The family of this 139-nucleotide sequence from Oryza sativa is "small nucleolar RNA snoR135". On this family, see Chen and Wu, Nucleic Acids Res 2009: "Mining small RNA sequencing data: a new approach to identify small nucleolar RNAs in Arabidopsis". Lineage of the source: Eukaryota > Streptophytina > Spermatophyta > Liliopsida > Oryza sativa. The match comes from Rfam's covariance-model search (114 bits). Rfam links the family to the GO terms RNA processing and nucleolus.
[Rfam]
RNA sequence: CCUGCAGGAUAGUGUGUAUCGGCUUAACGCUUUUUUGUGCGUCUUGUGCCGAAAGUGUUUCCUGCUAUAUUGAUCUGGGGAAAGUGGGCAGUUGGGUUAAGCUUUUGUGCUUUUUUCAACAAUCAUUUUCCUCUCAUUU
Numbered sequence: 001c002c003u004g005c006a007g008g009a010u011a012g013u014g015u016g017u018a019u020c021g022g023c024u025u026a027a028c029g030c031u032u033u034u035u036u037g038u039g040c041g042u043c044u045u046g047u048g049c050c051g052a053a054a055g056u057g058u059u060u061c062c063u064g065c066u067a068u069a070u071u072g073a074u075c076u077g078g079g080g081a082a083a084g085u086g087g088g089c090a091g092u093u094g095g096g097u098u099a100a101g102c103u104u105u106u107g108u109g110c111u112u113u114u115u116u117c118a119a120c121a122a123u124c125a126u127u128u129u130c131c132u133c134u135c136a137u138u139u
Stems, first nucleotide, its partner, number of pairs: 004065005009059001014042006077133011091120004